[Rfam]
RNA sequence: CCCUUUGCGUUUAUUGCGCGCAAGGCCUAUAUCGGUCGGGCAAGGGGCUUCGGCCCUGGCUAUGGCGAUAAACGGCGGCGUAUAAUAGACGCAGCGGACCCGGGGGCAGUACCCGGCGGCUCCACCAAAGACCCUCGGCGACGGGGGCCUCUGACGGGGCCGAACCAGGAUCGACGUGUGUUGAACGGCGCUGCCUUUUGCUCGGAAUGGGACCACCGUGACGGCCCAUACACAAGUGCCAACGAUAACGAAGCACUCGCGAUUGCGGCGUAACUGAGGGCCUCACGGCCUAAGGUUACUCCAAGAUAGCGCGGUCGGACCCCACCGGGCAACAGAAGGGGAUUCCA
Numbered sequence: 001c002c003c004u005u006u007g008c009g010u011u012u013a014u015u016g017c018g019c020g021c022a023a024g025g026c027c028u029a030u031a032u033c034g035g036u037c038g039g040g041c042a043a044g045g046g047g048c049u050u051c052g053g054c055c056c057u058g059g060c061u062a063u064g065g066c067g068a069u070a071a072a073c074g075g076c077g078g079c080g081u082a083u084a085a086u087a088g089a090c091g092c093a094g095c096g097g098a099c100c101c102g103g104g105g106g107c108a109g110u111a112c113c114c115g116g117c118g119g120c121u122c123c124a125c126c127a128a129a130g131a132c133c134c135u136c137g138g139c140g141a142c143g144g145g146g147g148c149c150u151c152u153g154a155c156g157g158g159g160c161c162g163a164a165c166c167a168g169g170a171u172c173g174a175c176g177u178g179u180g181u182u183g184a185a186c187g188g189c190g191c192u193g194c195c196u197u198u199u200g201c202u203c204g205g206a207a208u209g210g211g212a213c214c215a216c217c218g219u220g221a222c223g224g225c226c227c228a229u230a231c232a233c234a235a236g237u238g239c240c241a242a243c244g245a246u247a248a249c250g251a252a253g254c255a256c257u258c259g260c261g262a263u264u265g266c267g268g269c270g271u272a273a274c275u276g277a278g279g280g281c282c283u284c285a286c287g288g289c290c291u292a293a294g295g296u297u298a299c300u301c302c303a304a305g306a307u308a309g310c311g312c313g314g315u316c317g318g319a320c321c322c323c324a325c326c327g328g329g330c331a332a333c334a335g336a337a338g339g340g341g342a343u344u345c346c347a
Base pairs, nucleotide, nucleotide: 040060041059043057044056045055046054064202065201066200067199068198074195075194076193078191079190080189081188090180091179092178094177095176096175100116101115102114103113104112117162118161119160120159121158122157123156203218204217205216208228209227210226213224214223312327313326314325315324318346323341

A member of the RNA family "Alphaproteobacteria transfer-messenger RNA" from Sphingomonas sp. EC-HK361, 347 nucleotides long. The source organism's lineage runs through Bacteria, Pseudomonadati, Alphaproteobacteria, Sphingomonadaceae and Sphingomonas. The family's RNA type in Rfam is non-coding RNA gene. Clan: tRNA clan.